[Rfam]
RNA sequence: CAAUGGUGUUGACGCUCUUCCUCCUCCCUGAGCGUCGGCACAGAGAGCGGCGCACCUCCUCCCGCGCCGCAAUCAAAUCAAGCCCGCCGGACCUCCUCCCCCGGCGGGCUUUCUUU
Numbered sequence: 001c002a003a004u005g006g007u008g009u010u011g012a013c014g015c016u017c018u019u020c021c022u023c024c025u026c027c028c029u030g031a032g033c034g035u036c037g038g039c040a041c042a043g044a045g046a047g048c049g050g051c052g053c054a055c056c057u058c059c060u061c062c063c064g065c066g067c068c069g070c071a072a073u074c075a076a077a078u079c080a081a082g083c084c085c086g087c088c089g090g091a092c093c094u095c096c097u098c099c100c101c102c103g104g105c106g107g108g109c110u111u112u113c114u115u116u
Base pairs, nucleotide, nucleotide: 007040008039009038011036012035013034014033015032016031017030043074044073047070048069049068050067051066052065080111081110082109083108084107085106086105087104088103089102090101
The record is a 116-nucleotide sequence from Kumtagia ephedrae, which matches "Alphaproteobacterial ar14" in Rfam. It scores 86 bits against the family's covariance model. Lineage of the source: Bacteria > Pseudomonadota > Alphaproteobacteria > Hyphomicrobiales > Kumtagia. The base pairs follow the family's consensus structure.